[Rfam]
RNA sequence: GCCAAUGAGGAUUUGAUCCUUUUAACUGAGGUGUAGUUGAACCAAGACCCCGUUUUGCGGGGAGAACCUACUUGGGGAAGCUACAUUUCACAUGAAAUUAAUGGAUCUUACUGAGGC
Numbered sequence: 001g002c003c004a005a006u007g008a009g010g011a012u013u014u015g016a017u018c019c020u021u022u023u024a025a026c027u028g029a030g031g032u033g034u035a036g037u038u039g040a041a042c043c044a045a046g047a048c049c050c051c052g053u054u055u056u057g058c059g060g061g062g063a064g065a066a067c068c069u070a071c072u073u074g075g076g077g078a079a080g081c082u083a084c085a086u087u088u089c090a091c092a093u094g095a096a097a098u099u100a101a102u103g104g105a106u107c108u109u110a111c112u113g114a115g116g117c
Base pairs, nucleotide, nucleotide: 001117002116003115048062049061050060051059052058
Record summary: The family of this 117-nucleotide sequence from Protea cynaroides is "Small nucleolar RNA Z278". Rfam describes the family as follows. snoZ278 is a C/D box small nucleolar RNA. Its methylation guide targets have not been reported. Its family is annotated with RNA processing and nucleolus in the Gene Ontology. A search with the family's covariance model found it, with a score of 69 bits. The family's consensus secondary structure was predicted with PFOLD. The literature on the family includes a 2003 paper in Nucleic Acids Res by Chen et al., "The high diversity of snoRNAs in plants: identification and comparative study of 120 snoRNA genes from Oryza sativa".